Description:
The family of this 52-nucleotide RNA from Methylorubrum extorquens is "serC leader". Taxonomically the source falls in Methylorubrum extorquens (Bacteria, Pseudomonadota, Alphaproteobacteria, Hyphomicrobiales). A search with the family's covariance model found it, with a score of 69 bits. This family is a putative regulatory RNA structure that is found upstream of the serC-serA operon in some alpha-proteobacteria. For this family Rfam cites "Evidence for a second class of S-adenosylmethionine riboswitches and other regulatory RNA motifs in alpha-proteobacteria" (Corbino et al., Genome Biol, 2005). Its family is annotated with regulation of gene expression in the Gene Ontology. It is annotated as a cis-regulatory leader.

RNA sequence: CGGCGGGACACCUCCCCCCAACGGGAGGCAACCAUCUGGAAGGAUGGAUGAC
Numbered sequence: 001c002g003g004c005g006g007g008a009c010a011c012c013u014c015c016c017c018c019c020a021a022c023g024g025g026a027g028g029c030a031a032c033c034a035u036c037u038g039g040a041a042g043g044a045u046g047g048a049u050g051a052c
Base pairs, nucleotide, nucleotide: 011028012027013026014025015024016023032047033046034045035044036043037042